[Rfam]
RNA: SAM riboswitch aptamer (S box leader)
RNA sequence: UUCUUAUCUAGAGAAACAGAGGGUCUGGCCCGAUGAAGUUUCAGCAACCAGUAUAUAUCAUUUAUAUAUACAAGGUGCUAAGUCCUGCAGGUUUAAUUCUGAGAGAUGAGGA
Numbered sequence: 001u002u003c004u005u006a007u008c009u010a011g012a013g014a015a016a017c018a019g020a021g022g023g024u025c026u027g028g029c030c031c032g033a034u035g036a037a038g039u040u041u042c043a044g045c046a047a048c049c050a051g052u053a054u055a056u057a058u059c060a061u062u063u064a065u066a067u068a069u070a071c072a073a074g075g076u077g078c079u080a081a082g083u084c085c086u087g088c089a090g091g092u093u094u095a096a097u098u099c100u101g102a103g104a105g106a107u108g109a110g111g112a
Stems, first nucleotide, its partner, number of pairs: 001112008013042005021031003025087001027085002043079004048075002051071007083104001088101004